[Rfam]
RNA sequence: UUUUGGAUGAAAACGACAAAAUUGCUGGCUUUGGGUGUUGCUGUUGCAGCGGUGGCUGCCAUCCCCUUCGUGAUGGCGCAGAGCGCUGACAAGGGCAAGGCGGCCGAGACGGCGCAGGCCGCACCGGUCGACAAGGCGCAGAGCGAGGCCGAGCAGAAGGCCAAGCGCCGUGCGGCGGCGGCUGCCGAGGACAAGGCCAAGGCUGACCAGCCGGCGCCGCGUGAAGAAGAGGAAGAGGAAGCCCGUCGCCGUCGCUGACGCGCUUUCUUCAAGUUUCAAGGACGCCCCGGCGCAGGUCGGGGCGUCUUUUUUUUGAUUCCGCCGCAU
Numbered sequence: 001u002u003u004u005g006g007a008u009g010a011a012a013a014c015g016a017c018a019a020a021a022u023u024g025c026u027g028g029c030u031u032u033g034g035g036u037g038u039u040g041c042u043g044u045u046g047c048a049g050c051g052g053u054g055g056c057u058g059c060c061a062u063c064c065c066c067u068u069c070g071u072g073a074u075g076g077c078g079c080a081g082a083g084c085g086c087u088g089a090c091a092a093g094g095g096c097a098a099g100g101c102g103g104c105c106g107a108g109a110c111g112g113c114g115c116a117g118g119c120c121g122c123a124c125c126g127g128u129c130g131a132c133a134a135g136g137c138g139c140a141g142a143g144c145g146a147g148g149c150c151g152a153g154c155a156g157a158a159g160g161c162c163a164a165g166c167g168c169c170g171u172g173c174g175g176c177g178g179c180g181g182c183u184g185c186c187g188a189g190g191a192c193a194a195g196g197c198c199a200a201g202g203c204u205g206a207c208c209a210g211c212c213g214g215c216g217c218c219g220c221g222u223g224a225a226g227a228a229g230a231g232g233a234a235g236a237g238g239a240a241g242c243c244c245g246u247c248g249c250c251g252u253c254g255c256u257g258a259c260g261c262g263c264u265u266u267c268u269u270c271a272a273g274u275u276u277c278a279a280g281g282a283c284g285c286c287c288c289g290g291c292g293c294a295g296g297u298c299g300g301g302g303c304g305u306c307u308u309u310u311u312u313u314u315g316a317u318u319c320c321g322c323c324g325c326a327u
Base pairs, nucleotide, nucleotide: 006166008164014160022157023155024154025153026152034053036051037050038049040047041046057123058122059121068082069081083115084114085113086112087111088110135150136149137148169223170222171221172220173219182195183194202215203214248325249324251322278309279308280307281306282305283304284303285302286301287300288299289298290297291296
Rfam assigns this 327-nucleotide RNA from Stenotrophomonas terrae to the family "Proteobacterial sRNA sX6". The match comes from Rfam's covariance-model search (70 bits). Taxonomically the source falls in Stenotrophomonas (Bacteria, Pseudomonadota, Gammaproteobacteria, Lysobacterales).